[Rfam]
RNA: U12 minor spliceosomal RNA
RNA sequence: UCGCCUUAAACUAAUGAGUAAGGAAAACAAAGCGGGCGGUGAGAGCUGCCCGCCGCGCUAAUGCAAAUUGCGCACGAAUUUAUGGAGGGGUAAUAGGCUGGCCGAGCGUUGACGCUGCUUACUUUGCAGAACUCGUUCGUGCGGGCCUCCC
Numbered sequence: 001u002c003g004c005c006u007u008a009a010a011c012u013a014a015u016g017a018g019u020a021a022g023g024a025a026a027a028c029a030a031a032g033c034g035g036g037c038g039g040u041g042a043g044a045g046c047u048g049c050c051c052g053c054c055g056c057g058c059u060a061a062u063g064c065a066a067a068u069u070g071c072g073c074a075c076g077a078a079u080u081u082a083u084g085g086a087g088g089g090g091u092a093a094u095a096g097g098c099u100g101g102c103c104g105a106g107c108g109u110u111g112a113c114g115c116u117g118c119u120u121a122c123u124u125u126g127c128a129g130a131a132c133u134c135g136u137u138c139g140u141g142c143g144g145g146c147c148u149c150c151c
Stems, first nucleotide, its partner, number of pairs: 004023005032053008056072003089151002095148005101142001103139002106136003115129004